[Rfam]
RNA sequence: GCUGGUCAAUGAUGAUUUAUUUUUUUGUGUUGGACGGCUGGAUGAGAUUUGCGGAUAUGGGACUGAGACCAGUG
Numbered sequence: 001g002c003u004g005g006u007c008a009a010u011g012a013u014g015a016u017u018u019a020u021u022u023u024u025u026u027g028u029g030u031u032g033g034a035c036g037g038c039u040g041g042a043u044g045a046g047a048u049u050u051g052c053g054g055a056u057a058u059g060g061g062a063c064u065g066a067g068a069c070c071a072g073u074g
Base pairs, nucleotide, nucleotide: 001073002072003071004070005069

The record is a 74-nucleotide RNA sequence from Polypterus senegalus, which matches "Small nucleolar RNA SNORD99" in Rfam. The family's consensus secondary structure was predicted with RNAalifold. NCBI's taxonomy places the organism under Eukaryota, Eumetazoa, Craniata, Polypteridae, Polypterus. On this family, see Huttenhofer et al., EMBO J 2001: "RNomics: an experimental approach that identifies 201 candidates for novel, small, non-messenger RNAs in mouse".